The family of this 97-nucleotide RNA from Canis lupus is "Z30 small nucleolar RNA".
RNA sequence: AUGCGAUGAUGAGUGAAGUAUCGUCUGACCUGGUAUUGCCAUUGCUUCAGUGUUGGCUUUGACCAGGGUAUGAUUCCAUAAUCUUCUCUCUGAGCUG
Numbered sequence: 001a002u003g004c005g006a007u008g009a010u011g012a013g014u015g016a017a018g019u020a021u022c023g024u025c026u027g028a029c030c031u032g033g034u035a036u037u038g039c040c041a042u043u044g045c046u047u048c049a050g051u052g053u054u055g056g057c058u059u060u061g062a063c064c065a066g067g068g069u070a071u072g073a074u075u076c077c078a079u080a081a082u083c084u085u086c087u088c089u090c091u092g093a094g095c096u097g
Stems, first nucleotide, its partner, number of pairs: 001096001003095002038057004

It is annotated as a C/D-box small nucleolar RNA. The literature on the family includes a 2002 paper in Mol Cell Biol by Galardi et al., "Purified box C/D snoRNPs are able to reproduce site-specific 2'-O-methylation of target RNA in vitro". Lineage of the source: Eukaryota > Opisthokonta > Chordata > Dipnotetrapodomorpha > Canis lupus.